[Rfam]
RNA sequence: GUCUCUUUUUAACCCUCCCAGUGCCAUGGGCUGAUUUUAUAGCUUACUUCUAAUCGGCCCUGGUGUUUGGUGGGUUAAUAACAG
Dot-bracket structure: ..((.((.(((((.(.((.(((((((.(((((((((...............)))))))))))))))).)).).))))).)).))
Numbered sequence: 001g002u003c004u005c006u007u008u009u010u011a012a013c014c015c016u017c018c019c020a021g022u023g024c025c026a027u028g029g030g031c032u033g034a035u036u037u038u039a040u041a042g043c044u045u046a047c048u049u050c051u052a053a054u055c056g057g058c059c060c061u062g063g064u065g066u067u068u069g070g071u072g073g074g075u076u077a078a079u080a081a082c083a084g
Stems, first nucleotide, its partner, number of pairs: 003084002006081002009078005015072001017070002020067007028060009
A member of the RNA family "mir-4889 microRNA precursor family" from Branchiostoma floridae, 84 nucleotides long. Lineage of the source: Eukaryota > Eumetazoa > Chordata > Cephalochordata > Branchiostoma. The sequence is in the family's curated seed alignment. Rfam links the family to the GO terms RISC complex and miRNA-mediated post-transcriptional gene silencing.